[Rfam]
The family of this 106-nucleotide RNA from Alteromonas hispanica is "Alpha operon ribosome binding site". The organism belongs to Alteromonas, within Bacteria. Rfam's curators write: The bacterial alpha operon ribosome binding site is surrounded by this complex pseudoknotted structure. Translation of the mRNA produces 4 ribosomal protein products, one of which (S4) acts as a translational repressor by binding to the nested pseudoknot region. The mechanism of repression is thought to involve a conformational switch in the pseudoknot region and ribosome entrapment. A reference for the family is Schlax et al. (2001), "Translational repression of the Escherichia coli alpha operon mRNA: importance of an mRNA conformational switch and a ternary entrapment complex", J Biol Chem.
RNA sequence: CAAUUUGGUCGACGGAUGAGUAUCCUAUCGGGCUUUUUAGGUCGUCGACAAUUAAACAAGAGGAGUGCUGUUAAUGGCCCGUAUCGCUGGCAUUAACAUUCCUGAG
Dot-bracket structure: .....(.((((((..........[[...[[[[....{{{....)))))).)..........................]]]].......]]............}}}.